[Rfam]
This 93-nucleotide RNA sequence belongs to the Rfam family "skipping-rope RNA". It is one of the family's seed sequences.
RNA sequence: GGUCAUUGAAGGCAGAAAGGCUCCUGUCACACCUCUCCCGCUAGCCCAUAGAGAGGUACCUGAGAUGUUGGGUACGCCGUCCAACCAUUGACC
Number, nucleotide and partner (000 for none) at each position: 001g093002g092003u091004c090005a089006u000007u087008g086009a000010a000011g028012g027013c026014a025015g024016a000017a000018a000019g078020g077021c076022u000023c000024c015025u014026g013027u012028c011029a000030c062031a057032c056033c055034u054035c053036u052037c051038c000039c000040g000041c000042u000043a000044g000045c000046c000047c000048a000049u000050a000051g037052a036053g035054a034055g033056g032057u031058a000059c000060c000061u000062g030063a000064g000065a000066u000067g085068u084069u083070g082071g081072g000073u000074a000075c000076g021077c020078c019079g000080u000081c071082c070083a069084a068085c067086c008087a007088u000089u005090g004091a003092c002093c001